RNA: Bacterial RNase P class A
RNA sequence: UGAACAGGCCGUUCUAUCGCCAUCCGUUACGGAGGGAGGAAAGUCCGGGCAACACAGAGCAUCCUGCUUCCUAACGGGAAGGGCGCAAACUAACGUUUGUGUACGGAAAGUGCCACAGAAAACAAACUACCUUUACAAUAAAAAUUGCAAGGGAAAAGGUGAAAACGCGAGGUAAGAGCUCACGGCUUUGUAUGGCGACAUGCAUUGCGGUAAACCCCAGGAGUUGAAAGACCAAAUAAGCUGGUGACAAGGGGCUGCUCGUCCCUGUUCUUCCGCAAGGUUGAUGCAUCAGCGGGUAGGUCGUUAGAUCCUGUCAGCAAUGGCAGGGCCAGAUAAAUGAUAGAAGCUCAUGUAACUCAUGAGAACAGAACCCGGCUUACAGGCCUGUAUUUUUA
Numbered sequence: 001u002g003a004a005c006a007g008g009c010c011g012u013u014c015u016a017u018c019g020c021c022a023u024c025c026g027u028u029a030c031g032g033a034g035g036g037a038g039g040a041a042a043g044u045c046c047g048g049g050c051a052a053c054a055c056a057g058a059g060c061a062u063c064c065u066g067c068u069u070c071c072u073a074a075c076g077g078g079a080a081g082g083g084c085g086c087a088a089a090c091u092a093a094c095g096u097u098u099g100u101g102u103a104c105g106g107a108a109a110g111u112g113c114c115a116c117a118g119a120a121a122a123c124a125a126a127c128u129a130c131c132u133u134u135a136c137a138a139u140a141a142a143a144a145u146u147g148c149a150a151g152g153g154a155a156a157a158g159g160u161g162a163a164a165a166c167g168c169g170a171g172g173u174a175a176g177a178g179c180u181c182a183c184g185g186c187u188u189u190g191u192a193u194g195g196c197g198a199c200a201u202g203c204a205u206u207g208c209g210g211u212a213a214a215c216c217c218c219a220g221g222a223g224u225u226g227a228a229a230g231a232c233c234a235a236a237u238a239a240g241c242u243g244g245u246g247a248c249a250a251g252g253g254g255c256u257g258c259u260c261g262u263c264c265c266u267g268u269u270c271u272u273c274c275g276c277a278a279g280g281u282u283g284a285u286g287c288a289u290c291a292g293c294g295g296g297u298a299g300g301u302c303g304u305u306a307g308a309u310c311c312u313g314u315c316a317g318c319a320a321u322g323g324c325a326g327g328g329c330c331a332g333a334u335a336a337a338u339g340a341u342a343g344a345a346g347c348u349c350a351u352g353u354a355a356c357u358c359a360u361g362a363g364a365a366c367a368g369a370a371c372c373c374g375g376c377u378u379a380c381a382g383g384c385c386u387g388u389a390u391u392u393u394u395a
Base pairs, nucleotide, nucleotide: 002390004388005387006386007385008384009383010382011380012345013344014343015342016341017340018339020036021035023033024032025031026030041378042377043376045375046374047373048372049371050226051225052224053223062222063221064220065219066218067081068080069079070078071077082104083102084101085100086099087098088097089096090095105217106216110215111214112211113210114209127158128157130153131152132151133150134149136147137146138145139144166184167183169181170180171179189204190203191202192201193200194199230302231301232300233299240293241292242291243290244289245288309328310327311326312325313324314323315322316321